Record summary
This 132-nucleotide sequence from Apostichopus japonicus belongs to the Rfam family "U4atac minor spliceosomal RNA". Rfam's curators write: U4atac is an essential component of the minor U12-type spliceosome complex which is required for removal of the rarer class of eukaryotic introns (AT-AC, U12-type). Rfam links the family to the GO terms mRNA 5'-splice site recognition, pre-mRNA 5'-splice site binding and U4atac snRNP. The match comes from Rfam's covariance-model search (70 bits).
[Rfam]
RNA sequence: AUCGUCUUUACCAUGGGGAGCAUGAUUAUUCAAUGAUCGUAAAGUGAGCGUAGUCCUGCUGACACCAAUAUAACACACUAAUGCAUCGCCAGGUAGCUUAGGCAAUCUGGGUCAGGUGCAAUUUUUGAUUCC
Numbered sequence: 001a002u003c004g005u006c007u008u009u010a011c012c013a014u015g016g017g018g019a020g021c022a023u024g025a026u027u028a029u030u031c032a033a034u035g036a037u038c039g040u041a042a043a044g045u046g047a048g049c050g051u052a053g054u055c056c057u058g059c060u061g062a063c064a065c066c067a068a069u070a071u072a073a074c075a076c077a078c079u080a081a082u083g084c085a086u087c088g089c090c091a092g093g094u095a096g097c098u099u100a101g102g103c104a105a106u107c108u109g110g111g112u113c114a115g116g117u118g119c120a121a122u123u124u125u126u127g128a129u130u131c132c
Stems, first nucleotide, its partner, number of pairs: 005019005020059003025054005031048001038044001083119005089110006